[Rfam]
RNA sequence: CCUGCCCCUAGAGGUGUUGCAUGUAUGGCUGCUGUGUCAUGUGUGCAUCAGUAGGUGGCAGAGAGGAGAGAGUCUAUGUUCAGGCUCAGUGUUCUGGCCUAUGGACUUCUCUGAAUGAUUAGUGGCCUGACACA
Dot-bracket structure: .(((((((((..(((...((((.((((((......)))))).)))))))..)))).)))))......(..((.((((......(.((((.((((........))))....)))).).....)))).))..)...
Shown here is a 134-nucleotide RNA sequence, a member of the family "Small nucleolar RNA SNORA17". Gene Ontology terms of the family: nucleolus and RNA processing. The base pairs follow the family's consensus structure, which was predicted with RNAalifold. Clan: SNORA17 clan.